RNA sequence: CAAUCGGCCCUUUUCAGGGCCACACAUGCAAAUCCAAAAAUAAUUAU
Numbered sequence: 001c002a003a004u005c006g007g008c009c010c011u012u013u014u015c016a017g018g019g020c021c022a023c024a025c026a027u028g029c030a031a032a033u034c035c036a037a038a039a040a041u042a043a044u045u046a047u
Stems, first nucleotide, its partner, number of pairs: 006021006

This 47-nucleotide RNA from Lasius niger belongs to the Rfam family "Histone 3' UTR stem-loop". Rfam classes the family as a cis-regulatory element. Gene Ontology term of the family: mRNA 3'-end processing by stem-loop binding and cleavage. Rfam describes the family as follows. The mRNAs of metazoan histone genes lack a poly-A tail. 3' end processing occurs at a site between a highly conserved stem-loop (modelled by this family) and a purine rich region around 20 nts downstream (the histone downstream element, or HDE). The stem-loop is bound by a 31 kDa stem-loop binding protein (SLBP - also termed the histone hairpin binding protein, or HBP). The family's consensus secondary structure is taken from published work.